The record is a 93-nucleotide RNA from Theobroma umbraticum, which matches "Small nucleolar RNA snoR8a" in Rfam. The family has 7 seed sequences and 956 matches in Rfam 15.1. The base pairs follow the family's consensus structure, which was predicted with WAR. A search with the family's covariance model found it, with a score of 41 bits. NCBI's taxonomy places the organism under Eukaryota, Viridiplantae, rosids, Malvaceae, Theobroma. On this family, see Brown et al., RNA 2001: "Multiple snoRNA gene clusters from Arabidopsis".

RNA sequence: GAGUUAGCGAUAAUUAUAAAAAUAAUUUUUUAUUCUAAUUUACUUAAUUUAAGCAUGACAAAUCUCUUUUUACGUCCAUAGAAUUUGAGCUAC
Number, nucleotide and partner (000 for none) at each position: 001g000002a000003g093004u092005u000006a091007g090008c000009g000010a000011u000012a000013a000014u000015u000016a000017u000018a000019a000020a000021a000022a000023u000024a000025a000026u000027u000028u000029u000030u000031u000032a000033u000034u000035c000036u000037a000038a000039u000040u000041u000042a000043c000044u000045u000046a000047a000048u000049u000050u000051a000052a000053g000054c000055a000056u000057g000058a000059c000060a000061a000062a000063u000064c000065u000066c000067u000068u000069u000070u000071u000072a000073c000074g000075u000076c000077c000078a000079u000080a000081g000082a000083a000084u000085u000086u000087g000088a000089g000090c007091u006092a004093c003
Source information
Gene Ontology terms of the family: RNA processing and nucleolus.